[Rfam]
RNA: Selenocysteine insertion sequence 1
RNA sequence: GACUGUUUAUGAAGUCUGUACACUAAAUCCAUUGGAUGUGUACGGAUUGAUAAUUUAGUC
Dot-bracket structure: (((((........((((((((((....(((...))).))))))))))........)))))